RNA: SAM riboswitch aptamer (S box leader)
Organism: Clostridium taeniosporum
RNA sequence: UUCUUAUCAAGAGUGGUGGAGGGACUGGCCCGAUGAAACCCGGCAACCAAUAUAAUUUAUAUAUGGUGCUAAAUCCUGCAGUAAGUGACUGAUAGAUAAGGG
Numbered sequence: 001u002u003c004u005u006a007u008c009a010a011g012a013g014u015g016g017u018g019g020a021g022g023g024a025c026u027g028g029c030c031c032g033a034u035g036a037a038a039c040c041c042g043g044c045a046a047c048c049a050a051u052a053u054a055a056u057u058u059a060u061a062u063a064u065g066g067u068g069c070u071a072a073a074u075c076c077u078g079c080a081g082u083a084a085g086u087g088a089c090u091g092a093u094a095g096a097u098a099a100g101g102g
Stems, first nucleotide, its partner, number of pairs: 001102008013041001015040003021031003025078001027076002042070004047066002050062003074094001079091004